[Rfam]
RNA: Small nucleolar RNA SNORA31
RNA sequence: CUGCAUCCACUGGUAGACCUUGAACAAAUGUUGUUCUUUUGGUUUGCACUAGGAUGCAGAAGAAAGAAAUUCCUGCGUUUUCUGUUUGUCUUUGUAGCAGCUCAGAUUGAAUUGGGAAAUACGUUU
Numbered sequence: 001c002u003g004c005a006u007c008c009a010c011u012g013g014u015a016g017a018c019c020u021u022g023a024a025c026a027a028a029u030g031u032u033g034u035u036c037u038u039u040u041g042g043u044u045u046g047c048a049c050u051a052g053g054a055u056g057c058a059g060a061a062g063a064a065a066g067a068a069a070u071u072c073c074u075g076c077g078u079u080u081u082c083u084g085u086u087u088g089u090c091u092u093u094g095u096a097g098c099a100g101c102u103c104a105g106a107u108u109g110a111a112u113u114g115g116g117a118a119a120u121a122c123g124u125u126u
Stems, first nucleotide, its partner, number of pairs: 002058007011048002014046006022036006070118006078109001081106004086100004